Description: This 126-nucleotide sequence belongs to the Rfam family "Caenorhabditis snoRNA ceN81". The family has 3 seed sequences and 13 matches in Rfam 15.1. The base pairs follow the family's consensus structure, which was predicted with RNAalifold. On this family, see Jia et al., BMC Mol Biol 2007: "Systematic identification of non-coding RNA 2,2,7-trimethylguanosine cap structures in Caenorhabditis elegans". It is annotated as an H/ACA-box small nucleolar RNA.
RNA sequence: UGCGAAGAGUAGUCAUUUGUAUAAGUGUCUGAUUUAUACAGAGUUACACUUUUCGAAGAUAAGUGCUUCUUCUCGUUGGAGUUGUUUUAUUAGUAGGCAAUUACCUCUAUACUGAAAGCUACAAUU
Numbered sequence: 001u002g003c004g005a006a007g008a009g010u011a012g013u014c015a016u017u018u019g020u021a022u023a024a025g026u027g028u029c030u031g032a033u034u035u036a037u038a039c040a041g042a043g044u045u046a047c048a049c050u051u052u053u054c055g056a057a058g059a060u061a062a063g064u065g066c067u068u069c070u071u072c073u074c075g076u077u078g079g080a081g082u083u084g085u086u087u088u089a090u091u092a093g094u095a096g097g098c099a100a101u102u103a104c105c106u107c108u109a110u111a112c113u114g115a116a117a118g119c120u121a122c123a124a125u126u
Base pairs, nucleotide, nucleotide: 003055004054005053006052007051008050009049010048012047013046016042017041018040019039020038021037022036023035025033026032065119066118067117068116071115072114077109078108079107080106081105082100083099084098085097086096087095